[Rfam]
RNA sequence: UCUAACAGAUCGCCGAGCUCUGCCACUGUCUGAGGUCCGUUCGCAACAUCGCAUGGCAGAGGCGGGGGAACCAAAUUCGGGCUUCGCAAGAAGCCCUUGGGGUUAAGUUGCCAGGCUUCACAGCCGGCAACCGGGUGACUCCCAUCCGAAUCCGACAGCUCACCUCGCAGGCAUUGGGAGAGGCAAA
Numbered sequence: 001u002c003u004a005a006c007a008g009a010u011c012g013c014c015g016a017g018c019u020c021u022g023c024c025a026c027u028g029u030c031u032g033a034g035g036u037c038c039g040u041u042c043g044c045a046a047c048a049u050c051g052c053a054u055g056g057c058a059g060a061g062g063c064g065g066g067g068g069a070a071c072c073a074a075a076u077u078c079g080g081g082c083u084u085c086g087c088a089a090g091a092a093g094c095c096c097u098u099g100g101g102g103u104u105a106a107g108u109u110g111c112c113a114g115g116c117u118u119c120a121c122a123g124c125c126g127g128c129a130a131c132c133g134g135g136u137g138a139c140u141c142c143c144a145u146c147c148g149a150a151u152c153c154g155a156c157a158g159c160u161c162a163c164c165u166c167g168c169a170g171g172c173a174u175u176g177g178g179a180g181a182g183g184c185a186a187a
Base pairs, nucleotide, nucleotide: 012172013171014170018061019060020059021058022057023056024055025054062168063167064166065165066164067163072099073098100153101152102151108130109129110128111127133147134146135145136144
RNA: c-di-AMP riboswitch aptamer (ydaO/yuaA leader)